[Rfam]
RNA sequence: GGGUCGGCCUAGCCGACUGGGUACUUCGAAUCCAUUUCUUCUCCCAUUUCGUAAGAAAUAACAACAACCCAGUCCCAGUGGCGCAGUCCAACCCUUUU
Dot-bracket structure: .(((.((....((((.((((....((.(........................................).))..)))))))).....)).))).....
Numbered sequence: 001g002g003g004u005c006g007g008c009c010u011a012g013c014c015g016a017c018u019g020g021g022u023a024c025u026u027c028g029a030a031u032c033c034a035u036u037u038c039u040u041c042u043c044c045c046a047u048u049u050c051g052u053a054a055g056a057a058a059u060a061a062c063a064a065c066a067a068c069c070c071a072g073u074c075c076c077a078g079u080g081g082c083g084c085a086g087u088c089c090a091a092c093c094c095u096u097u098u
Stems, first nucleotide, its partner, number of pairs: 002093003006089002012082004017078004025072002028069001